Annotation: Shown here is a 46-nucleotide RNA, a member of the family "L31-Actinobacteria ribosomal protein leader". Rfam's curators put it in the seed alignment. The family's consensus secondary structure is taken from published work. Clan: Ribosomal Protein L31 Leader clan.
RNA sequence: CCGGUUUCCGGUUCACCUGCGCGGCACCGGCGCGGGACCCGGGGCC
Number, nucleotide and partner (000 for none) at each position: 001c000002c000003g046004g045005u000006u044007u000008c042009c041010g040011g039012u000013u000014c000015a000016c036017c035018u034019g033020c032021g031022c030023g000024g000025c000026a000027c000028c000029g000030g022031c021032g020033c019034g018035g017036g016037a000038c000039c011040c010041g009042g008043g000044g006045c004046c003